[Rfam]
RNA sequence: AAAGGUUACAAGUUUGAGGCCACAGCAGAAGUGCUCAGGGUGCAGCCCUGUCAGAUUCCAACAAAUCUGUGAAUUCUGCU
Numbered sequence: 001a002a003a004g005g006u007u008a009c010a011a012g013u014u015u016g017a018g019g020c021c022a023c024a025g026c027a028g029a030a031g032u033g034c035u036c037a038g039g040g041u042g043c044a045g046c047c048c049u050g051u052c053a054g055a056u057u058c059c060a061a062c063a064a065a066u067c068u069g070u071g072a073a074u075u076c077u078g079c080u
Stems, first nucleotide, its partner, number of pairs: 016048001018047003024080007031043003052069006
Shown here is an 80-nucleotide RNA sequence from Alligator mississippiensis, a member of the family "Mammalian CPEB3 ribozyme". It scores 51 bits against the family's covariance model. Taxonomically the source falls in Alligator (Eukaryota, Bilateria, Gnathostomata, Archelosauria). The base pairs follow the family's consensus structure, which is taken from published work. Rfam 15.1 lists 5,706 matches to the family in 197 species.